[Rfam]
7SK RNA: a 314-nucleotide RNA sequence from Ceyx cyanopectus. A search with the family's covariance model found it, with a score of 196 bits. From the family's description: 7SK was discovered as an abundant small nuclear RNA in the mid-70s but a possible function has only recently been suggested. Two independent studies have found that 7SK RNA binds the CDK9/cyclin T complex (known as elongation factor P-TEFb). P-TEFb activates transcription by phosphorylating the C-terminal domain of RNA polymerase II. This process is negatively regulated by the 7SK RNP. The secondary structure of 7SK RNA shown here was proposed by Wasserman and Steitz on the basis of chemical modification and enzymatic cleavage experiments. The source organism's lineage runs through Eukaryota, Amniota, Coelurosauria, Aves and Ceyx.
RNA sequence: GGAUGUGAGCAUGAUCUGGCAGUGACAUCUGUCACUCCACUGAUCACCAGGGUUGAUUCAGCUGAUCUGGCUGGCUGGGUGUGCCCUUCCUCACCACUCCAUGUGCAUCCCUCCUGAAACUGCACACUCAAAGAGGAUGACCUACCCUGAUAGUGGCACACCGUUCAUUGGUCAAGGGAAUAUGGUCAUCCUCCUCCCAUGCUAGAACCUCCAAACAAGCCCCAGAUGCAUUUGCAGGAGAAUGUAAGCUAGUCAAGCUUCCAAGACUGCAGAUGCAUCCAAGUGAGGUACUGCAUGAGGCAGUUUCCAUUAUU
Numbered sequence: 001g002g003a004u005g006u007g008a009g010c011a012u013g014a015u016c017u018g019g020c021a022g023u024g025a026c027a028u029c030u031g032u033c034a035c036u037c038c039a040c041u042g043a044u045c046a047c048c049a050g051g052g053u054u055g056a057u058u059c060a061g062c063u064g065a066u067c068u069g070g071c072u073g074g075c076u077g078g079g080u081g082u083g084c085c086c087u088u089c090c091u092c093a094c095c096a097c098u099c100c101a102u103g104u105g106c107a108u109c110c111c112u113c114c115u116g117a118a119a120c121u122g123c124a125c126a127c128u129c130a131a132a133g134a135g136g137a138u139g140a141c142c143u144a145c146c147c148u149g150a151u152a153g154u155g156g157c158a159c160a161c162c163g164u165u166c167a168u169u170g171g172u173c174a175a176g177g178g179a180a181u182a183u184g185g186u187c188a189u190c191c192u193c194c195u196c197c198c199a200u201g202c203u204a205g206a207a208c209c210u211c212c213a214a215a216c217a218a219g220c221c222c223c224a225g226a227u228g229c230a231u232u233u234g235c236a237g238g239a240g241a242a243u244g245u246a247a248g249c250u251a252g253u254c255a256a257g258c259u260u261c262c263a264a265g266a267c268u269g270c271a272g273a274u275g276c277a278u279c280c281a282a283g284u285g286a287g288g289u290a291c292u293g294c295a296u297g298a299g300g301c302a303g304u305u306u307c308c309a310u311u312a313u314u
Stems, first nucleotide, its partner, number of pairs: 001100003005094005013089002018086002025082005035074002037070003042067004047061001110156002113153001115126002128150003135146002190257001194252002198248001200246003209240004216234004282314002285310001287308002290304005